[Rfam]
Nucleotides: 083
Stems, first nucleotide, its partner, number of pairs: 002082004038048003
Number, partner (000 for none) and nucleotide at each position: 001000u002082g003081g004080c005079c006000g007000a008000u009000g010000a011000c012000g013000a014000c015000c016000a017000g018000a019000c020000c021000a022000c023000u024000g025000c026000a027000c028000a029000a030000c031000c032000u033000g034000a035000g036000u037000c038048c039047u040046g041000c042000a043000c044000a045000c046040c047039a048038g049000g050000c051000g052000u053000u054000g055000g056000a057000g058000u059000g060000u061000g062000u063000u064000c065000u066000g067000a068000g069000a070000a071000c072000a073000g074000a075000c076000c077000a078000a079005g080004g081003c082002c083000g

The record is an 83-nucleotide RNA sequence from Oryctolagus cuniculus, which matches "small Cajal body-specific RNA 18" in Rfam. Rfam's curators write: scaRNAs are a specific class of small nuclear RNAs which localise to the Cajal bodies and guide the modification of RNA polymerase II transcribed spliceosomal RNAs U1, U2, U4, U5 and U12. This C/D box domain U91 (also known as U4-8) was identified by Darzacq and is predicted to guide the 2'O-ribose methylation of U4 snRNA C8.